[Rfam]
A member of the RNA family "Group II catalytic intron D1-D4-1" from Alteromonas pelagimontana, 96 nucleotides long.
A search with the family's covariance model found it, with a score of 64 bits.
The pairing is the family consensus, mapped onto this sequence.
Rfam 15.1 lists 2,508 matches to the family in 1,144 species.
The organism belongs to Alteromonas, within Bacteria.
Gene Ontology term of the family: Group II intron splicing.
Group II introns are found in rRNA, tRNA and mRNA of organelles in fungi, plants and protists, and also in mRNA in bacteria.

RNA sequence: CGUCGCCACAGGUAACUAUGGCGGUGAUAAAGCAGAAGUCAGCAGACGGCAUAGUAGCCAAACGCCCAUCGUAACGGUUGGGACAGGGUGAAGGCC
Numbered sequence: 001c002g003u004c005g006c007c008a009c010a011g012g013u014a015a016c017u018a019u020g021g022c023g024g025u026g027a028u029a030a031a032g033c034a035g036a037a038g039u040c041a042g043c044a045g046a047c048g049g050c051a052u053a054g055u056a057g058c059c060a061a062a063c064g065c066c067c068a069u070c071g072u073a074a075c076g077g078u079u080g081g082g083a084c085a086g087g088g089u090g091a092a093g094g095c096c
Stems, first nucleotide, its partner, number of pairs: 001026002004023005010017002038047003048096003057089003066081002